[Rfam]
Nucleotides: 194
Stems, first nucleotide, its partner, number of pairs: 027064002067110010084100005114193004
Number, partner (000 for none) and nucleotide at each position: 001000a002000c003000g004000a005000a006000u007000g008000u009000c010000a011000a012000a013000g014000g015000g016000g017000a018000g019000u020000a021000g022000c023000g024000u025000u026000a027064a028063a029000u030000g031000a032000u033000u034000u035000a036000a037000g038000a039000c040000a041000c042000g043000a044000u045000a046000a047000u048000u049000u050000g051000u052000g053000a054000c055000u056000u057000a058000a059000a060000c061000a062000u063028u064027u065000a066000a067110a068109a069108c070107a071106a072105a073104g074103u075102c076101g077000u078000c079000a080000u081000u082000a083000c084100a085099u086098g087097g088096g089000u090000g091000u092000a093000a094000a095000a096088u097087c098086c099085a100084u101076c102075g103074g104073c105072u106071u107070u108069g109068u110067u111000g112000a113000c114193a115192u116191g117190a118000a119000u120000a121000a122000u123000g124000u125000c126000u127000a128000g129000c130000a131000a132000g133000a134000c135000c136000u137000u138000u139000g140000c141000c142000u143000a144000u145000a146000a147000u148000a149000g150000g151000c152000a153000g154000a155000g156000g157000u158000c159000u160000u161000u162000u163000u164000g165000u166000c167000u168000u169000u170000a171000u172000a173000g174000g175000g176000u177000u178000u179000u180000u181000c182000g183000u184000c185000a186000c187000a188000c189000u190117u191116c192115a193114u194000u